Bacterial large subunit ribosomal RNA: a 548-nucleotide part of an RNA from uncultured bacterium 164. The sequence is in the family's curated seed alignment.

RNA sequence: UACUAAGGGCAUGCGGUGAAUGCCUUGGCACUUAAAGACGAUGAAGGACGUGAAAAGCUGCGAUAAGCGACGGUUAGGAGCACAUAUCCACUGACCCGUCGAUCUCCGAAUGGGGGAACCCUAUAUACUACUGCCUGAAUUCAUAGGGCAGAAAGAGUCAACUCAGGGAAGUGAACCAUCUCAGUACCUGAAGGAAAAGAAAACAACAGUGAUUCCGUAAGUAGCGGCGAGCGAACGCGGAACAGCCUAAACCAGUGGGGCUUGCUCCAUUGGGGUCGUGGGACCAGAUACAACGGCAACCAAAGAUCAGCGGAAGUGUGUGGAAAAGCACUCCAUAGAGCGUGAUAGACGCGUACGCGAAGAUUUGAGGUUGCUAUUCUGGCACCCGAGUAAUGCGGGACACGAGGAAUCUUGCAUGAAUUCGCCGGGACCAUCCGGUAAGGCUAAAUACUCUUAAGUGACCGAUAGUGAACCAGUACCGUGAGGGAAAGGUGAAAAGAACCCCGGUGAGGGGAGUGAAAUAGUACCUGAAACCGCAUGCUUACAAG
Numbered sequence: 001u002a003c004u005a006a007g008g009g010c011a012u013g014c015g016g017u018g019a020a021u022g023c024c025u026u027g028g029c030a031c032u033u034a035a036a037g038a039c040g041a042u043g044a045a046g047g048a049c050g051u052g053a054a055a056a057g058c059u060g061c062g063a064u065a066a067g068c069g070a071c072g073g074u075u076a077g078g079a080g081c082a083c084a085u086a087u088c089c090a091c092u093g094a095c096c097c098g099u100c101g102a103u104c105u106c107c108g109a110a111u112g113g114g115g116g117a118a119c120c121c122u123a124u125a126u127a128c129u130a131c132u133g134c135c136u137g138a139a140u141u142c143a144u145a146g147g148g149c150a151g152a153a154a155g156a157g158u159c160a161a162c163u164c165a166g167g168g169a170a171g172u173g174a175a176c177c178a179u180c181u182c183a184g185u186a187c188c189u190g191a192a193g194g195a196a197a198a199g200a201a202a203a204c205a206a207c208a209g210u211g212a213u214u215c216c217g218u219a220a221g222u223a224g225c226g227g228c229g230a231g232c233g234a235a236c237g238c239g240g241a242a243c244a245g246c247c248u249a250a251a252c253c254a255g256u257g258g259g260g261c262u263u264g265c266u267c268c269a270u271u272g273g274g275g276u277c278g279u280g281g282g283a284c285c286a287g288a289u290a291c292a293a294c295g296g297c298a299a300c301c302a303a304a305g306a307u308c309a310g311c312g313g314a315a316g317u318g319u320g321u322g323g324a325a326a327a328g329c330a331c332u333c334c335a336u337a338g339a340g341c342g343u344g345a346u347a348g349a350c351g352c353g354u355a356c357g358c359g360a361a362g363a364u365u366u367g368a369g370g371u372u373g374c375u376a377u378u379c380u381g382g383c384a385c386c387c388g389a390g391u392a393a394u395g396c397g398g399g400a401c402a403c404g405a406g407g408a409a410u411c412u413u414g415c416a417u418g419a420a421u422u423c424g425c426c427g428g429g430a431c432c433a434u435c436c437g438g439u440a441a442g443g444c445u446a447a448a449u450a451c452u453c454u455u456a457a458g459u460g461a462c463c464g465a466u467a468g469u470g471a472a473c474c475a476g477u478a479c480c481g482u483g484a485g486g487g488a489a490a491g492g493u494g495a496a497a498a499g500a501a502c503c504c505c506g507g508u509g510a511g512g513g514g515a516g517u518g519a520a521a522u523a524g525u526a527c528c529u530g531a532a533a534c535c536g537c538a539u540g541c542u543u544a545c546a547a548g
Stems, first nucleotide, its partner, number of pairs: 007543010022528001023492002027463002029460007036452002038158002046107003049062003068101006077089003112121003128155002131151006162193001163191005173180002203210002213448001214241005224232002244445004252273007280387003284382005296374006304366005310358003316331004334338001340352003393417008424439005479486002502514004